The record is a 277-nucleotide RNA, which matches "RAGATH-8 RNA" in Rfam.
RNA sequence: AGAAACAAAGCAAGUAGGAAGGACACGGGUGAAGCGAUAGGGCUACACGCAAGUGACAUGGUGGUCAGGCUGCCGGAUAGCAGACAGAGCGUGUGAAGAAUAAACAUGACCCGUCAAAGUAGUUGAAGAAAACAGGAACGGUAGGGCAAGAAAGCAAAGUAUUCAGAACUAUUUGAAGAAAACUGAACAGGCUGAACCAAUCGGCACUUUACCCCUAAACCAAGAAACCGUUAAGUGGAAGAAUCAACCGCACGAGAUGACACAGCACUUUGUUUCA
Numbered sequence: 001a002g003a004a005a006c007a008a009a010g011c012a013a014g015u016a017g018g019a020a021g022g023a024c025a026c027g028g029g030u031g032a033a034g035c036g037a038u039a040g041g042g043c044u045a046c047a048c049g050c051a052a053g054u055g056a057c058a059u060g061g062u063g064g065u066c067a068g069g070c071u072g073c074c075g076g077a078u079a080g081c082a083g084a085c086a087g088a089g090c091g092u093g094u095g096a097a098g099a100a101u102a103a104a105c106a107u108g109a110c111c112c113g114u115c116a117a118a119g120u121a122g123u124u125g126a127a128g129a130a131a132a133c134a135g136g137a138a139c140g141g142u143a144g145g146g147c148a149a150g151a152a153a154g155c156a157a158a159g160u161a162u163u164c165a166g167a168a169c170u171a172u173u174u175g176a177a178g179a180a181a182a183c184u185g186a187a188c189a190g191g192c193u194g195a196a197c198c199a200a201u202c203g204g205c206a207c208u209u210u211a212c213c214c215c216u217a218a219a220c221c222a223a224g225a226a227a228c229c230g231u232u233a234a235g236u237g238g239a240a241g242a243a244u245c246a247a248c249c250g251c252a253c254g255a256g257a258u259g260a261c262a263c264a265g266c267a268c269u270u271u272g273u274u275u276c277a
Stems, first nucleotide, its partner, number of pairs: 002276009025114006045094006054067004070083004122248005132236002137232006143216004151210004160189001162187005191205005
Pairs were carried over by alignment from the consensus structure, which is taken from published work. A reference for the family is Weinberg et al. (2015), "New classes of self-cleaving ribozymes revealed by comparative genomics analysis", Nat Chem Biol. The sequence is in the family's curated seed alignment.